[Rfam]
RNA sequence: GCUGUACAUGAUGACAACUUGGCUCCCUCUACUGAUAAUAAUGAAGAGAACAGCCAUGUCACCCAACAUAUCUGAGCGUACAGC
Numbered sequence: 001g002c003u004g005u006a007c008a009u010g011a012u013g014a015c016a017a018c019u020u021g022g023c024u025c026c027c028u029c030u031a032c033u034g035a036u037a038a039u040a041a042u043g044a045a046g047a048g049a050a051c052a053g054c055c056a057u058g059u060c061a062c063c064c065a066a067c068a069u070a071u072c073u074g075a076g077c078g079u080a081c082a083g084c
Base pairs, nucleotide, nucleotide: 001084002083003082004081005080006079
A member of the RNA family "Small nucleolar RNA SNORD100" from Monodelphis domestica, 84 nucleotides long. On this family, see Galardi et al., Mol Cell Biol 2002: "Purified box C/D snoRNPs are able to reproduce site-specific 2'-O-methylation of target RNA in vitro". It is annotated as a C/D-box small nucleolar RNA. The base pairs follow the family's consensus structure, which was predicted with RNAalifold. NCBI's taxonomy places the organism under Eukaryota, Deuterostomia, Mammalia, Metatheria, Monodelphis. The sequence is in the family's curated seed alignment.